[Rfam]
RNA: tRNA
RNA sequence: GUUCAGGUAGCUCAGCUGGUUAGAGCAAAGGAUUGAAAGUCCUUGUGUCAGUGAUUCGAAUCCACUCCUAAGCG
Numbered sequence: 001g002u003u004c005a006g007g008u009a010g011c012u013c014a015g016c017u018g019g020u021u022a023g024a025g026c027a028a029a030g031g032a033u034u035g036a037a038a039g040u041c042c043u044u045g046u047g048u049c050a051g052u053g054a055u056u057c058g059a060a061u062c063c064a065c066u067c068c069u070a071a072g073c074g
Base pairs, nucleotide, nucleotide: 001073002072003071005069006068007067010026011025012024013023028044029043030042031041032040050066051065052064053063